[Rfam]
Nucleotides: 387
Stems, first nucleotide, its partner, number of pairs: 001383008012339007020045009050371003054368005059242004068274002073237003077234002079093005094108001095106004109232002114230002116226003130173002132169004137164001138161001181199006201221001202219007246296002248293002256286002259283003265279004303322008
Number, partner (000 for none) and nucleotide at each position: 001383a002382g003381a004380g005379u006378u007377a008376g009000c010000g011000c012339g013338g014337c015336a016335g017334u018333u019000g020045c021044a022043g023042g024041g025040u026039u027038g028037a029000c030000a031000u032000u033000g034000a035000g036000a037028u038027c039026a040025g041024c042023u043022c044021u045020g046000a047000g048000g049000a050371a051370a052369g053000u054368c055367c056366g057365g058364g059242c060241u061240c062239c063000c064000c065000a066000a067000a068274g069273a070000c071000c072000a073237a074236a075235c076000u077234u078233g079093c080092u081091g082090g083089g084000u085000a086000a087000c088000g089083c090082c091081c092080a093079g094108u095106g096105c097104g098103c099000g100000u101000g102000a103098g104097c105096g106095u107000g108094a109232g110231g111000a112000u113000a114230g115229u116226g117225c118224c119000a120000c121000a122000g123000a124000a125000a126000c127000a128000u129000a130173c131172c132169g133168c134167c135166g136000a137164a138161g139000c140000u141000u142000a143000g144000c145000a146000u147000u148000a149000g150000g151000u152000u153000c154000g155000c156000c157000u158000a159000a160000u161138c162000u163000a164137u165000c166135u167134g168133g169132u170000a171000a172131g173130g174000g175000u176000g177000c178000a179000a180000a181199g182198g183197u184196g185195c186194g187000g188000u189000a190000a191000g192000a193000g194186c195185g196184c197183a198182c199181c200000a201221g202219c203218a204217g205216u206215a207214u208213c209000g210000u211000g212000a213208g214207g215206u216205g217204c218203u219202g220000g221201c222000u223000c224118g225117g226116u227000a228000a229115a230114c231110c232109c233078c234077g235075g236074u237073u238000g239062g240061g241060a242059g243000c244000a245000a246296g247295g248293a249292c250000g251000g252000u253000g254000g255000g256286a257285u258000g259283a260282u261281g262000g263000u264000u265279g266278g267277u268276c269000u270000u271000u272000u273069u274068c275000c276268g277267a278266u279265c280000c281261c282260a283259u284000a285257a286256u287000u288000u289000g290000g291000a292249g293248u294000g295247c296246c297000g298000c299000u300000g301000g302000a303322g304321g305320u306319g307318g308317c309316u310315g311000g312000u313000a314000a315310c316309a317308g318307u319306c320305a321304u322303c323000c324000u325000a326000g327000a328000u329000a330000g331000a332000u333018a334017a335016c336015u337014g338013c339012c340000c341000u342000u343000u344000u345000g346000c347000g348000c349000u350000g351000c352000a353000a354000g355000a356000g357000a358000a359000c360000a361000g362000a363000a364058c365057c366056c367055g368054g369052c370051u371050u372000a373000u374000g375000u376008c377007u378006a379005a380004c381003u382002c383001u384000c385000c386000u387000g
A member of the RNA family "Bacterial RNase P class A" from Picosynechococcus sp. PCC 7002, 387 nucleotides long. It is one of the family's seed sequences. The organism belongs to Picosynechococcus, within Bacteria. The base pairs follow the family's consensus structure, which is taken from published work. The family's RNA type in Rfam is ribozyme.